[Rfam]
RNA sequence: GUCUGUCAUGCUUUAGCAGCACGUAAAUAUUGGUGUUAAGACUGUAAAUAUCUCCAGUAUUAACUGUGCUGCUGAAGAAGGGCUAGC
Numbered sequence: 001g002u003c004u005g006u007c008a009u010g011c012u013u014u015a016g017c018a019g020c021a022c023g024u025a026a027a028u029a030u031u032g033g034u035g036u037u038a039a040g041a042c043u044g045u046a047a048a049u050a051u052c053u054c055c056a057g058u059a060u061u062a063a064c065u066g067u068g069c070u071g072c073u074g075a076a077g078a079a080g081g082g083c084u085a086g087c
Stems, first nucleotide, its partner, number of pairs: 001087002005083002013075011024063001026061008035052001
RNA: mir-15 microRNA precursor family
Organism: Tyto alba